[Rfam]
RNA sequence: AAUGAGAGAAUGAUAAAUUAAAUUUUUCUUCCUGAUUUUCAGCUUUUUUCUCCUGACAAAAUUCAAAUCAAACUAAAAAUGCUAAAAAUCAGGAGGAAAAAUCUGAUUUGUCAUUUUCUUAUU
Numbered sequence: 001a002a003u004g005a006g007a008g009a010a011u012g013a014u015a016a017a018u019u020a021a022a023u024u025u026u027u028c029u030u031c032c033u034g035a036u037u038u039u040c041a042g043c044u045u046u047u048u049u050c051u052c053c054u055g056a057c058a059a060a061a062u063u064c065a066a067a068u069c070a071a072a073c074u075a076a077a078a079a080u081g082c083u084a085a086a087a088a089u090c091a092g093g094a095g096g097a098a099a100a101a102u103c104u105g106a107u108u109u110g111u112c113a114u115u116u117u118c119u120u121a122u123u
Stems, first nucleotide, its partner, number of pairs: 001123020022102006029095011041083002045079004
RNA: MIR7504 microRNA precursor family